The record is a 73-nucleotide RNA sequence from Monosiga brevicollis, which matches "tRNA" in Rfam. Taxonomically the source falls in Monosiga brevicollis (Eukaryota, Opisthokonta, Choanoflagellata, Monosiga). Gene Ontology term of the family: triplet codon-amino acid adaptor activity.
[Rfam]
RNA sequence: GGCGGAUUGGCGCAAUUGGUAGCGCAGUGGAUUCCAGUUCCAAAGGCUGUAGGUUCGAGUCCUGCAUCUGUCA
Numbered sequence: 001g002g003c004g005g006a007u008u009g010g011c012g013c014a015a016u017u018g019g020u021a022g023c024g025c026a027g028u029g030g031a032u033u034c035c036a037g038u039u040c041c042a043a044a045g046g047c048u049g050u051a052g053g054u055u056c057g058a059g060u061c062c063u064g065c066a067u068c069u070g071u072c073a
Base pairs, nucleotide, nucleotide: 001072002071003070004069005068006067007066010025011024012023013022028042029041030040031039049065050064051063052062053061